Rfam assigns this 577-nucleotide part of an RNA from Haloarcula argentinensis to the family "Archaeal small subunit ribosomal RNA".
The source organism's lineage runs through Archaea, Methanobacteriati, Halobacteria, Haloarculaceae and Haloarcula.
Its family is annotated with structural constituent of ribosome and ribosome in the Gene Ontology.
For this family Rfam cites "The comparative RNA web (CRW) site: an online database of comparative sequence and structure information for ribosomal, intron, and other RNAs" (Cannone et al., BMC Bioinformatics, 2002).
RNA sequence: UGGCGGGGGAGCACCACAACCGGAGGAGCCUGCGGUUUAAUUGGACUCAACGCCGGAAAUCUCACCGGUCCCGACAGUAGUAAUGACGGUCAGGUUGACGACUUUACCCGACGCUACUGAGAGGAGGUGCAUGGCCGCCGUCAGCUCGUACCGUGAGGCGUCCUGUUAAGUCAGGCAACGAGCGAGACCCGCACUUCUAGUUGCCAGCAAUACCCUUGAGGUAGUUGGGUACACUAGGAGGACUGCCGCUGCUAAAGCGGAGGAAGGAACGGGCAACGGUAGGUCAGUAUGCCCCGAAUGGACCGGGCAACACGCGGGCUACAAUGGCUCUGACAGUGGGAUGCAACGCCGAGAGGCGACGCUAAUCUCCAAACGGAGUCGUAGUUCGGAUUGCGGGCUGAAACCCGCCCGCAUGAAGCUGGAUUCGGUAGUAAUCGCGUGUCAGAAGCGCGCGGUGAAUACGUCCCUGCUCCUUGCACACACCGCCCGUCAAAGCACCCGAGUGGGGUCCGGAUGAGGCCGUCAUGCGACGGUCGAAUCUGGGCUCUGCAAGGGGGCUUAAGUCGGAACCCUUGUA
Number, nucleotide and partner (000 for none) at each position: 001u480002g479003g477004c476005g475006g000007g474008g473009g472010a471011g470012c469013a468014c000015c000016a464017c463018a000019a000020c428021c427022g426023g425024a424025g322026g000027a320028g319029c318030c317031u316032g315033c314034g313035g311036u310037u000038u000039a000040a000041u056042u055043g054044g053045a000046c000047u000048c000049a000050a000051c000052g000053c044054c043055g042056g041057a000058a000059a000060u000061c000062u000063c000064a000065c306066c305067g304068g303069u302070c301071c300072c000073g000074a000075c119076a118077g117078u116079a000080g114081u113082a000083a000084u000085g000086a000087c000088g108089g107090u106091c000092a104093g103094g102095u000096u000097g000098a000099c000100g000101a000102c094103u093104u092105u000106a090107c089108c088109c000110g000111a000112c000113g081114c080115u000116a078117c077118u076119g075120a000121g000122a000123g295124g294125a000126g293127g292128u291129g290130c000131a000132u289133g288134g284135c283136c282137g280138c279139c278140g277141u000142c000143a000144g183145c182146u181147c180148g179149u178150a000151c158152c157153g000154u000155g000156a000157g152158g151159c000160g000161u000162c175163c174164u173165g172166u000167u000168a000169a000170g000171u000172c165173a164174g163175g162176c000177a000178a149179c148180g147181a146182g145183c144184g000185a000186g000187a000188c000189c272190c271191g270192c000193a000194c240195u239196u238197c237198u236199a235200g234201u000202u000203g000204c229205c228206a000207g000208c227209a226210a225211u223212a222213c221214c220215c000216u000217u000218g000219a000220g214221g213222u212223a211224g000225u210226u209227g208228g205229g204230u000231a000232c000233a000234c200235u199236a198237g197238g196239a195240g194241g000242a000243c263244u262245g000246c260247c259248g258249c257250u256251g000252c000253u000254a000255a000256a250257g249258c248259g247260g246261a000262g244263g243264a000265a000266g000267g000268a000269a000270c191271g190272g189273g000274c000275a000276a000277c140278g139279g138280u137281a000282g136283g135284u134285c000286a000287g000288u133289a132290u129291g128292c127293c126294c124295c123296g000297a000298a000299u000300g071301g070302a069303c068304c067305g066306g065307g000308c000309a000310a036311c035312a000313c034314g033315c032316g031317g030318g029319c028320u027321a000322c025323a000324a000325u000326g380327g379328c378329u377330c376331u375332g374333a000334c000335a000336g000337u000338g369339g368340g367341a000342u000343g362344c361345a000346a000347c358348g357349c356350c355351g000352a000353g000354a000355g350356g349357c348358g347359a000360c000361g344362c343363u000364a000365a000366u000367c340368u339369c338370c000371a000372a000373a000374c332375g331376g330377a329378g328379u327380c326381g000382u000383a000384g000385u000386u000387c418388g000389g000390a000391u000392u413393g412394c411395g410396g409397g408398c407399u000400g000401a000402a000403a000404c000405c000406c000407g398408c397409c396410c395411g394412c393413a392414u000415g000416a000417a000418g387419c000420u000421g000422g000423a000424u024425u023426c022427g021428g020429u000430a000431g000432u000433a000434a456435u455436c454437g453438c452439g451440u450441g449442u000443c000444a000445g000446a000447a000448g000449c441450g440451c439452g438453c437454g436455g435456u434457g000458a000459a000460u000461a000462c000463g017464u016465c000466c000467c000468u013469g012470c011471u010472c009473c008474u007475u005476g004477c003478a000479c002480a001481c000482a000483c575484c000485g570486c000487c000488c566489g565490u000491c563492a000493a560494a559495g558496c557497a000498c555499c554500c553501g000502a000503g550504u549505g548506g547507g546508g545509u544510c543511c542512g541513g540514a539515u538516g000517a000518g535519g534520c533521c532522g531523u530524c529525a000526u000527g000528c000529g524530a523531c522532g521533g520534u519535c518536g000537a000538a515539u514540c513541u512542g511543g510544g509545c508546u507547c506548u505549g504550c503551a000552a000553g500554g499555g498556g000557g496558c495559u494560u493561a000562a000563g491564u000565c489566g488567g000568a000569a000570c485571c000572c000573u000574u000575g483576u000577a000